[Rfam]
RNA: mir-126 microRNA precursor family
Organism: Salmo salar
RNA sequence: CAUUAUUACUUUUGGUACGCGCUAUGCCAAACUCUACUCGUACCGUGAGUAAUAAUGCA
Numbered sequence: 001c002a003u004u005a006u007u008a009c010u011u012u013u014g015g016u017a018c019g020c021g022c023u024a025u026g027c028c029a030a031a032c033u034c035u036a037c038u039c040g041u042a043c044c045g046u047g048a049g050u051a052a053u054a055a056u057g058c059a
Base pairs, nucleotide, nucleotide: 001057002056003055004054005053006052007051008050009049010048013045014044015043016042017041018040019039021037